A member of the RNA family "Small nucleolar RNA SNORA3/SNORA45 family" from Scleropages formosus, 130 nucleotides long. It is annotated as an H/ACA-box small nucleolar RNA.

RNA sequence: UUCAAGACUAGAGUCUCAUCCUGACAUCCCCAGUUGUCUUGGUGUGCUAGGGAUCUCGCAGACUGAAUGCCAGCCUUAUUCUCUGACCAGCUUUAACUCAGCUGGGUCAGACACUUGCUUGGCAACAGUU
Numbered sequence: 001u002u003c004a005a006g007a008c009u010a011g012a013g014u015c016u017c018a019u020c021c022u023g024a025c026a027u028c029c030c031c032a033g034u035u036g037u038c039u040u041g042g043u044g045u046g047c048u049a050g051g052g053a054u055c056u057c058g059c060a061g062a063c064u065g066a067a068u069g070c071c072a073g074c075c076u077u078a079u080u081c082u083c084u085g086a087c088c089a090g091c092u093u094u095a096a097c098u099c100a101g102c103u104g105g106g107u108c109a110g111a112c113a114c115u116u117g118c119u120u121g122g123c124a125a126c127a128g129u130u
Stems, first nucleotide, its partner, number of pairs: 003058001005056002008052002012048002015046001017044004023038004070122004075117001082111005087105006
About the family: The members of this family belong to the H/ACA class of snoRNAs which are thought to guide the sites of modification of uridines to pseudouridines. This family includes mouse snoMBI-28 and human homologues ACA3 (SNORA3) and ACA3-2 (SNORA45). It scores 59 bits against the family's covariance model.